[Rfam]
The family of this 66-nucleotide RNA from Paraburkholderia sp. DHOC27 is "Fluoride riboswitch aptamer (crcB RNA motif)". Lineage of the source: Bacteria > Betaproteobacteria > Burkholderiales > Burkholderiaceae > Paraburkholderia. Pairs were carried over by alignment from the consensus structure, which is taken from published work. Rfam links the family to the GO terms response to fluoride and positive regulation of gene expression.
RNA sequence: UGCCAAAGUGGAGAUGGCAUUCCUCCCAUAACCGCCGCUUAGCCGGCUAAUGAUGCCUACGGAUUC
Numbered sequence: 001u002g003c004c005a006a007a008g009u010g011g012a013g014a015u016g017g018c019a020u021u022c023c024u025c026c027c028a029u030a031a032c033c034g035c036c037g038c039u040u041a042g043c044c045g046g047c048u049a050a051u052g053a054u055g056c057c058u059a060c061g062g063a064u065u066c
Base pairs, nucleotide, nucleotide: 010026011025012024013023016057017056018055019054020053021052034047035046036045037044